[Rfam]
RNA sequence: CUGCAUGUAGAACUGUCUCUCCUUCAUUUCUUUAGGAACAGGAAUAUAUCCACGACAUGCUGCAUUAAAAGAGUUCUCAGGGCUGCCAUCUUAUAGUAGAUGUUGAGUAGUGGUAGUAUACUUCUCUUACAUAA
Dot-bracket structure: ..((((((.......(((.(.((...........)).).)))............)))))).........((((........((..(((.(((......)).).)).).....)).........)))).......

Overview: Rfam assigns this 134-nucleotide RNA sequence from Pteropus alecto to the family "Small nucleolar RNA U109". Pairs were carried over by alignment from the consensus structure, which was predicted with WAR. It scores 101 bits against the family's covariance model. The source organism's lineage runs through Eukaryota, Dipnotetrapodomorpha, Eutheria, Pteropodinae and Pteropus. On this family, see Gu et al., Nucleic Acids Res 2005: "A novel experimental approach for systematic identification of box H/ACA snoRNAs from eukaryotes". The family's RNA type in Rfam is H/ACA-box small nucleolar RNA.